[Rfam]
RNA sequence: AUGCGAUGAGUCGAUAGGUAGUCUUCGGGCUACUAUUGAGCAUAAGGAGGUCAUAACGCAGGAGCGGACCUUGAUGAGUUGUGUGAACCUGCUCAUCACAUGAAGAUGCCUCUUAAUCCCUAGUCUAGCGAUUGGGGAUUUUU
Number, nucleotide and partner (000 for none) at each position: 001a000002u000003g000004c000005g000006a000007u000008g000009a000010g000011u000012c038013g037014a036015u035016a034017g000018g033019u032020a031021g030022u029023c028024u000025u000026c000027g000028g023029g022030c021031u020032a019033c018034u016035a015036u014037u013038g012039a000040g000041c000042a000043u000044a000045a111046g110047g109048a071049g070050g069051u068052c000053a000054u000055a000056a000057c066058g065059c064060a000061g000062g000063a000064g059065c058066g057067g000068a051069c050070c049071u048072u098073g097074a096075u095076g094077a093078g092079u091080u000081g000082u000083g000084u000085g000086a000087a000088c000089c000090u000091g079092c078093u077094c076095a075096u074097c073098a072099c108100a107101u106102g000103a000104a000105g000106a101107u100108g099109c047110c046111u045112c000113u000114u000115a000116a139117u138118c137119c136120c135121u134122a133123g132124u131125c000126u000127a000128g000129c000130g000131a124132u123133u122134g121135g120136g119137g118138a117139u116140u000141u000142u000143u000
RNA: MarS sRNA